[Rfam]
RNA sequence: UACAAUAGAAUCGGCUCCUCAAGGGUGGUCGGCUCACUCCUGUUCCUUAAUGGAAGGGGGUGAGGCCAUUGACGGUGUAUGAGGCAAUAUCAUUGAUGCUCACUUUCGGGCUUCUGAUAGUUGCCGUGCUGUCCUUCCACAAAAAGAAGUAGACCACCCUUGAGCUUAGCAGGCUUGGUGGUCUACUUGACAAAACAUUGAGCCGCCCCCUUGUAGGGAACGUCUAUUGUGCAUGACCGUGGGUGCGGGAACACCUGCG
Numbered sequence: 001u002a003c004a005a006u007a008g009a010a011u012c013g014g015c016u017c018c019u020c021a022a023g024g025g026u027g028g029u030c031g032g033c034u035c036a037c038u039c040c041u042g043u044u045c046c047u048u049a050a051u052g053g054a055a056g057g058g059g060g061u062g063a064g065g066c067c068a069u070u071g072a073c074g075g076u077g078u079a080u081g082a083g084g085c086a087a088u089a090u091c092a093u094u095g096a097u098g099c100u101c102a103c104u105u106u107c108g109g110g111c112u113u114c115u116g117a118u119a120g121u122u123g124c125c126g127u128g129c130u131g132u133c134c135u136u137c138c139a140c141a142a143a144a145a146g147a148a149g150u151a152g153a154c155c156a157c158c159c160u161u162g163a164g165c166u167u168a169g170c171a172g173g174c175u176u177g178g179u180g181g182u183c184u185a186c187u188u189g190a191c192a193a194a195a196c197a198u199u200g201a202g203c204c205g206c207c208c209c210c211u212u213g214u215a216g217g218g219a220a221c222g223u224c225u226a227u228u229g230u231g232c233a234u235g236a237c238c239g240u241g242g243g244u245g246c247g248g249g250a251a252c253a254c255c256u257g258c259g
Base pairs, nucleotide, nucleotide: 001231002230003229004228005227007225008224009223012205013204014203015202016201017200018164019163020162021161022160023159024158025157027154029152034063035062036061037060038059039058040057041056071133072132073131074130075129076128077127084099085098086097108125109124175194176193208218209217238259239258240257241256242255243254244253245252

Rfam assigns this 259-nucleotide RNA sequence from Brevibacillus borstelensis to the family "BsrG". bsrE, bsrG and bsrH pair through intermolecular interactions with antisense sRNAs. The organism belongs to Brevibacillus borstelensis, within Bacteria. By type it is a small RNA.